[Rfam]
RNA sequence: CGUAGCUUGGAUAGCAGUGGGGAAGGAAACUGAACCACUGAAGUCUAUUGACAAAGCCAUAUUAAGUAUGGUGAGCGAGUGGUCAGGCCAUAACGACU
Numbered sequence: 001c002g003u004a005g006c007u008u009g010g011a012u013a014g015c016a017g018u019g020g021g022g023a024a025g026g027a028a029a030c031u032g033a034a035c036c037a038c039u040g041a042a043g044u045c046u047a048u049u050g051a052c053a054a055a056g057c058c059a060u061a062u063u064a065a066g067u068a069u070g071g072u073g074a075g076c077g078a079g080u081g082g083u084c085a086g087g088c089c090a091u092a093a094c095g096a097c098u
Stems, first nucleotide, its partner, number of pairs: 010049005015040006024031002056072006075091001077089001
The record is a 98-nucleotide RNA from Mesotoga sp. SC_4PWA21, which matches "Group II catalytic intron D1-D4-4" in Rfam. Rfam links the family to the GO term Group II intron splicing. NCBI's taxonomy places the organism under Bacteria, Thermotogati, Thermotogota, Kosmotogaceae, Mesotoga. Rfam's curators write: Group II introns are found in rRNA, tRNA and mRNA of organelles in fungi, plants and protists, and also in mRNA in bacteria. The base pairs follow the family's consensus structure.